Shown here is a 143-nucleotide RNA from Oryza rufipogon, a member of the family "mir-395 microRNA precursor family". Taxonomically the source falls in Oryza (Eukaryota, Euphyllophyta, Poales, Oryzinae). The family has 25 seed sequences and 2,798 matches in Rfam 15.1. On this family, see Jones-Rhoades and Bartel, Mol Cell 2004: "Computational Identification of Plant MicroRNAs and Their Targets, Including a Stress-Induced miRNA". The sequence is in the family's curated seed alignment. Rfam links the family to the GO terms RISC complex and miRNA-mediated post-transcriptional gene silencing. mir-395 was identified in both Arabidopsis thaliana and Oryza sativa computationally and was later experimentally verified. mir-395 is thought to target mRNAs coding for ATP sulphurylases. The mature sequence is excised from the 3' arm of the hairpin.
[Rfam]
RNA sequence: UUAUCCACUGGAGUUCUCCUCAAACCACUUCAGCAGAUAGCUAGCUAGGCCUCAUUGCAUUGCACCACUGUUGCAUAACUAUGAGCAUGGGGCCAAAAGUUAGCUGCUUAUAGUGAAGUGUUUGGGGAAACUCCGGUUGGCAA
Numbered sequence: 001u002u003a004u005c006c007a008c009u010g011g012a013g014u015u016c017u018c019c020u021c022a023a024a025c026c027a028c029u030u031c032a033g034c035a036g037a038u039a040g041c042u043a044g045c046u047a048g049g050c051c052u053c054a055u056u057g058c059a060u061u062g063c064a065c066c067a068c069u070g071u072u073g074c075a076u077a078a079c080u081a082u083g084a085g086c087a088u089g090g091g092g093c094c095a096a097a098a099g100u101u102a103g104c105u106g107c108u109u110a111u112a113g114u115g116a117a118g119u120g121u122u123u124g125g126g127g128a129a130a131c132u133c134c135g136g137u138u139g140g141c142a143a
Stems, first nucleotide, its partner, number of pairs: 005139001007137003011133005017127004022123003026120007035111001037109001